L17-Actino-Proteobacteria ribosomal protein leader: a 54-nucleotide RNA sequence from Streptomyces diacarni.
For this family Rfam cites "Discovery of 20 novel ribosomal leader candidates in bacteria and archaea" (Eckert and Weinberg, BMC Microbiol, 2020).
The family's RNA type in Rfam is cis-regulatory leader.
It scores 43 bits against the family's covariance model.
The base pairs follow the family's consensus structure, which is taken from published work.

RNA sequence: CCCGGUACCUGAUACGGCCGGGACUGCCGCCGGUUCCUGACACGGCCGGUGCAG
Numbered sequence: 001c002c003c004g005g006u007a008c009c010u011g012a013u014a015c016g017g018c019c020g021g022g023a024c025u026g027c028c029g030c031c032g033g034u035u036c037c038u039g040a041c042a043c044g045g046c047c048g049g050u051g052c053a054g
Stems, first nucleotide, its partner, number of pairs: 001022005008017002024054003028051007